RNA sequence: CAAAACCUUCGGGGCGUGGUGAAAUUCCACACCGGCGGUGAUUCGGCCUAUGCCACCUGGCAGGGUACGAUCAGUCCGUGACCCGUUGUGAAGCUAGCGGUACCUGACAACAGCUUCGCUACGGCUGACCCAGUGCAACUCUGGGACCGACAGUAUAGUCUGGAUGGGAGAAGGAAGAU
Numbered sequence: 001c002a003a004a005a006c007c008u009u010c011g012g013g014g015c016g017u018g019g020u021g022a023a024a025u026u027c028c029a030c031a032c033c034g035g036c037g038g039u040g041a042u043u044c045g046g047c048c049u050a051u052g053c054c055a056c057c058u059g060g061c062a063g064g065g066u067a068c069g070a071u072c073a074g075u076c077c078g079u080g081a082c083c084c085g086u087u088g089u090g091a092a093g094c095u096a097g098c099g100g101u102a103c104c105u106g107a108c109a110a111c112a113g114c115u116u117c118g119c120u121a122c123g124g125c126u127g128a129c130c131c132a133g134u135g136c137a138a139c140u141c142u143g144g145g146a147c148c149g150a151c152a153g154u155a156u157a158g159u160c161u162g163g164a165u166g167g168g169a170g171a172a173g174g175a176a177g178a179u
Base pairs, nucleotide, nucleotide: 006174007173008172009171010170017029018028019027031159032158033149034148035079036078037077038076074147075146083124084123085122086121129145130144131143132142133141151162152161153160
RNA: FMN riboswitch aptamer (RFN element)
Organism: Paenibacillus whitsoniae